[Rfam]
RNA: Glycine riboswitch aptamer
Organism: Terasakiella brassicae
RNA sequence: UGAUCCCAUGCGGGAGAGUGAUGAUCUUUAUCUUUGAACGGAUCAUCCGCCGAAGGAGCAAGCGCCCCUGCAAACUCUCAGGCAUAUAGGACCGCUGGACUCAU
Numbered sequence: 001u002g003a004u005c006c007c008a009u010g011c012g013g014g015a016g017a018g019u020g021a022u023g024a025u026c027u028u029u030a031u032c033u034u035u036g037a038a039c040g041g042a043u044c045a046u047c048c049g050c051c052g053a054a055g056g057a058g059c060a061a062g063c064g065c066c067c068c069u070g071c072a073a074a075c076u077c078u079c080a081g082g083c084a085u086a087u088a089g090g091a092c093c094g095c096u097g098g099a100c101u102c103a104u
Stems, first nucleotide, its partner, number of pairs: 007098001010095004020047008049083003052079002056077003062071002